[Rfam]
RNA sequence: GGCCUCGCCUGACAGUGUACCACCCUGAGUUCCCACGUGCGUUUGCCCAGUGUGAACACAGCUGGUGGUAUAUCAGUCAGUCGCGGCAU
Numbered sequence: 001g002g003c004c005u006c007g008c009c010u011g012a013c014a015g016u017g018u019a020c021c022a023c024c025c026u027g028a029g030u031u032c033c034c035a036c037g038u039g040c041g042u043u044u045g046c047c048c049a050g051u052g053u054g055a056a057c058a059c060a061g062c063u064g065g066u067g068g069u070a071u072a073u074c075a076g077u078c079a080g081u082c083g084c085g086g087c088a089u
Stems, first nucleotide, its partner, number of pairs: 008080001011077001015074001016072002019069002022066003025061003029057001031055002
RNA: mir-317 microRNA precursor family